Shown here is a 91-nucleotide sequence, a member of the family "skipping-rope RNA". Rfam's curators put it in the seed alignment. By type it is a small RNA.

[Rfam]
RNA sequence: AGUCUUCGAGGUGAAAAGUGCGUCGUCAUACGCCACAUGCCUUUGGCAAUGGGCAAAAGAGAUGCUGGGAGUGACGCUCCAGCCGAGGGCU
Numbered sequence: 001a002g003u004c005u006u007c008g009a010g011g012u013g014a015a016a017a018g019u020g021c022g023u024c025g026u027c028a029u030a031c032g033c034c035a036c037a038u039g040c041c042u043u044u045g046g047c048a049a050u051g052g053g054c055a056a057a058a059g060a061g062a063u064g065c066u067g068g069g070a071g072u073g074a075c076g077c078u079c080c081a082g083c084c085g086a087g088g089g090c091u
Stems, first nucleotide, its partner, number of pairs: 001091008011029004020077005031059001032054003064083005